[Rfam]
RNA: Small nucleolar RNA SNORD94
RNA sequence: UCUGUGGUGAUGAAACGCGCAGGGGUACGGACCUCAGCCGAUGAUGGGGGCUGAGCGCGGCUGCAGCUCAUCAGAGGACGUGUGGUUCACUGACACAGCUGCAGCAGCGCGACACAGACGCCCAUCUGAACAGA
Numbered sequence: 001u002c003u004g005u006g007g008u009g010a011u012g013a014a015a016c017g018c019g020c021a022g023g024g025g026u027a028c029g030g031a032c033c034u035c036a037g038c039c040g041a042u043g044a045u046g047g048g049g050g051c052u053g054a055g056c057g058c059g060g061c062u063g064c065a066g067c068u069c070a071u072c073a074g075a076g077g078a079c080g081u082g083u084g085g086u087u088c089a090c091u092g093a094c095a096c097a098g099c100u101g102c103a104g105c106a107g108c109g110c111g112a113c114a115c116a117g118a119c120g121c122c123c124a125u126c127u128g129a130a131c132a133g134a
Base pairs, nucleotide, nucleotide: 001134002133003132004131005130